[Rfam]
RNA sequence: GAGCAAUGAUGAUGAGGUUUUUGUACUAGCUUCUACAACUAUGAAGGUUUCUACACUUGAUCUGAGCUCA
Numbered sequence: 001g002a003g004c005a006a007u008g009a010u011g012a013u014g015a016g017g018u019u020u021u022u023g024u025a026c027u028a029g030c031u032u033c034u035a036c037a038a039c040u041a042u043g044a045a046g047g048u049u050u051c052u053a054c055a056c057u058u059g060a061u062c063u064g065a066g067c068u069c070a
Stems, first nucleotide, its partner, number of pairs: 001069004014033006
This 70-nucleotide RNA from Suricata suricatta belongs to the Rfam family "Small nucleolar RNA U2-30". Taxonomically the source falls in Suricata (Eukaryota, Deuterostomia, Vertebrata, Euteleostomi). It is annotated as a C/D-box small nucleolar RNA. A reference for the family is Tycowski et al. (2004), "Guide RNAs with 5' Caps and Novel Box C/D snoRNA-like Domains for Modification of snRNAs in Metazoa", Curr Biol.